transfer-messenger RNA: a 373-nucleotide RNA sequence from Actinokineospora terrae. The source organism's lineage runs through Bacteria, Actinomycetota, Actinomycetes, Pseudonocardiales and Actinokineospora. It scores 120 bits against the family's covariance model. From the family's description: Bacterial tmRNA, also known as 10Sa RNA or SsrA, is named for its dual tRNA and mRNA-like properties. Its role is to liberate the mRNA from a stalled ribosome. To accomplish this part of the tmRNA is used as a reading frame that ends in a translation stop signal. The broken mRNA is replaced in the ribosome by the tmRNA and translation of the tmRNA leads to addition of a proteolysis tag to the incomplete protein enabling recognition by a protease. Recently a number of permuted tmRNA genes have been found encoded in two parts. tmRNAs have been identified in eubacteria and some chloroplasts but are absent from archaeal and eukaryote nuclear genomes. It is annotated as a non-coding RNA gene.
RNA sequence: GGGGGUGAACGGUUUCGACUCUGGACGUCGAGUCAGGGGAAGCGUGCAGGUGCAGGCGAGAUGACCACCUCAAGCGUCGCUCGCAAAACAAUAAGCGCCAAGACUAACAGUCGCGCUGACUUCGCCCUCGCUGCCUAAGCGAGCGCAAGUCUGUCGGCCCGGGGAAGCCUCCGCCCCGGUAGCCGGCAUCAGCUAGGAGGCUCACCGCCCGCCCCGGUCACGGGGGCGAAGCGGGAAACCCACAGUGGCUGGGCCCGUCACACCGGCUUGUUCGCGUGACCGGUGGGGCCGAGUAGAGACACUGCGAACUGCGCACGGAGAAGUCCUGGUGAAGCGACAGAGGACCCGGGUUCGAUUCCCGGCACCUCCACGA
Numbered sequence: 001g002g003g004g005g006u007g008a009a010c011g012g013u014u015u016c017g018a019c020u021c022u023g024g025a026c027g028u029c030g031a032g033u034c035a036g037g038g039g040a041a042g043c044g045u046g047c048a049g050g051u052g053c054a055g056g057c058g059a060g061a062u063g064a065c066c067a068c069c070u071c072a073a074g075c076g077u078c079g080c081u082c083g084c085a086a087a088a089c090a091a092u093a094a095g096c097g098c099c100a101a102g103a104c105u106a107a108c109a110g111u112c113g114c115g116c117u118g119a120c121u122u123c124g125c126c127c128u129c130g131c132u133g134c135c136u137a138a139g140c141g142a143g144c145g146c147a148a149g150u151c152u153g154u155c156g157g158c159c160c161g162g163g164g165a166a167g168c169c170u171c172c173g174c175c176c177c178g179g180u181a182g183c184c185g186g187c188a189u190c191a192g193c194u195a196g197g198a199g200g201c202u203c204a205c206c207g208c209c210c211g212c213c214c215c216g217g218u219c220a221c222g223g224g225g226g227c228g229a230a231g232c233g234g235g236a237a238a239c240c241c242a243c244a245g246u247g248g249c250u251g252g253g254c255c256c257g258u259c260a261c262a263c264c265g266g267c268u269u270g271u272u273c274g275c276g277u278g279a280c281c282g283g284u285g286g287g288g289c290c291g292a293g294u295a296g297a298g299a300c301a302c303u304g305c306g307a308a309c310u311g312c313g314c315a316c317g318g319a320g321a322a323g324u325c326c327u328g329g330u331g332a333a334g335c336g337a338c339a340g341a342g343g344a345c346c347c348g349g350g351u352u353c354g355a356u357u358c359c360c361g362g363c364a365c366c367u368c369c370a371c372g373a
Stems, first nucleotide, its partner, number of pairs: 001369007019342005028333001032330007043317005049068001052065001056084005127149002130146001132145003152188006159179006167201006205234004216250006252290005259285003265281002270309004276303001346362005